The family of this 133-nucleotide RNA from Jaculus jaculus is "Small nucleolar RNA SNORA71".
Rfam describes the family as follows. The members of this family belong to the H/ACA class of snoRNAs which bind a number of proteins (including dyskerin, Gar1p and Nop10p) to form snoRNP complexes.
For this family Rfam cites "The family of box ACA small nucleolar RNAs is defined by an evolutionarily conserved secondary structure and ubiquitous sequence elements essential for RNA accumulation" (Ganot et al., Genes Dev, 1997).
A search with the family's covariance model found it, with a score of 100 bits.
RNA sequence: CCCUGCAUUCGUAAGUGAUCAUGGGGUGCCCAUGCCUUGGUCAUUGGUGGUGCAGGCAGAGGAAAUAAGGAAAGAGUGGUCCUGUGUUUGGAAAGUCUACAUCUUGCCUUCCAGUUCCGGGAGCUUUCCUACA
Numbered sequence: 001c002c003c004u005g006c007a008u009u010c011g012u013a014a015g016u017g018a019u020c021a022u023g024g025g026g027u028g029c030c031c032a033u034g035c036c037u038u039g040g041u042c043a044u045u046g047g048u049g050g051u052g053c054a055g056g057c058a059g060a061g062g063a064a065a066u067a068a069g070g071a072a073a074g075a076g077u078g079g080u081c082c083u084g085u086g087u088u089u090g091g092a093a094a095g096u097c098u099a100c101a102u103c104u105u106g107c108c109u110u111c112c113a114g115u116u117c118c119g120g121g122a123g124c125u126u127u128c129c130u131a132c133a
Stems, first nucleotide, its partner, number of pairs: 002056008014045008023037003067130001069129006086116001088114006095107001